This 124-nucleotide RNA from Sodalis-like endosymbiont of Proechinophthirus fluctus belongs to the Rfam family "Phenylalanine leader peptide".
The literature on the family includes a 2010 paper in Nucleic Acids Res by Gurvich et al., "Two groups of phenylalanine biosynthetic operon leader peptides genes: a high level of apparently incidental frameshifting in decoding Escherichia coli pheL".
Lineage of the source: Bacteria > Pseudomonadati > Pseudomonadota > Bruguierivoracaceae > Sodalis.
Rfam 15.1 lists 379 matches to the family in 290 species.
Its family is annotated with cellular amino acid metabolic process in the Gene Ontology.

RNA sequence: AAGUGUGUGAAUACUGCUAUUUUCUGUUUCUUUUUUACUUUAGCACCUAUUUCCUAGGGAUUUGUGUGUAAGUUAAUAAACGAAAGAUAGCGCUAAAGCCUCCCGGAAUGGAGGCUUUUUUAUU
Number, nucleotide and partner (000 for none) at each position: 001a000002a000003g000004u000005g000006u000007g000008u000009g000010a000011a000012u000013a000014c000015u000016g091017c090018u089019a088020u000021u086022u085023u084024c000025u082026g081027u080028u079029u078030c000031u076032u075033u000034u000035u071036u070037a069038c068039u000040u000041u000042a055043g054044c000045a052046c000047c000048u000049a000050u000051u000052u045053c000054c043055u042056a065057g000058g063059g000060a000061u000062u000063u058064g000065u056066g000067u000068g038069u037070a036071a035072g000073u000074u000075a032076a031077u000078a029079a028080a027081c026082g025083a000084a023085a022086g021087a000088u019089a018090g017091c016092g000093c000094u000095a118096a117097a116098g115099c114100c113101u112102c111103c110104c000105g000106g000107a000108a000109u000110g103111g102112a101113g100114g099115c098116u097117u096118u095119u000120u000121u000122a000123u000124u000